The family of this 130-nucleotide RNA from Dryoscopus gambensis is "U11 spliceosomal RNA". Rfam classes the family as a spliceosomal small nuclear RNA. Clan: U1 clan. It scores 104 bits against the family's covariance model.
[Rfam]
RNA sequence: AAAAAGGGCUUCUGCCGUGCGUGGCACAGGGGGGUUUCGCGCCACCCUUGCGGAAUCGACAUCAAGAGAUUUCGGAAGCACAAUUUUUGUAAGGGAGGGUUGCCGGUAACCGUUUAGUUCCGGCUCCCCG
Numbered sequence: 001a002a003a004a005a006g007g008g009c010u011u012c013u014g015c016c017g018u019g020c021g022u023g024g025c026a027c028a029g030g031g032g033g034g035u036u037u038c039g040c041g042c043c044a045c046c047c048u049u050g051c052g053g054a055a056u057c058g059a060c061a062u063c064a065a066g067a068g069a070u071u072u073c074g075g076a077a078g079c080a081c082a083a084u085u086u087u088u089g090u091a092a093g094g095g096a097g098g099g100u101u102g103c104c105g106g107u108a109a110c111c112g113u114u115u116a117g118u119u120c121c122g123g124c125u126c127c128c129c130g
Stems, first nucleotide, its partner, number of pairs: 008079005013026005027050006034042002051074007097128003102124005108119003